RNA sequence: ACCUGCGUGAUGAAGAAAAUCGUUCGGAUUCCCACUGAUAUUUCAUGAUUAUUAUAACCAGCUACUUCUGACGGGU
Numbered sequence: 001a002c003c004u005g006c007g008u009g010a011u012g013a014a015g016a017a018a019a020u021c022g023u024u025c026g027g028a029u030u031c032c033c034a035c036u037g038a039u040a041u042u043u044c045a046u047g048a049u050u051a052u053u054a055u056a057a058c059c060a061g062c063u064a065c066u067u068c069u070g071a072c073g074g075g076u
Stems, first nucleotide, its partner, number of pairs: 001076005
RNA: Small nucleolar RNA R12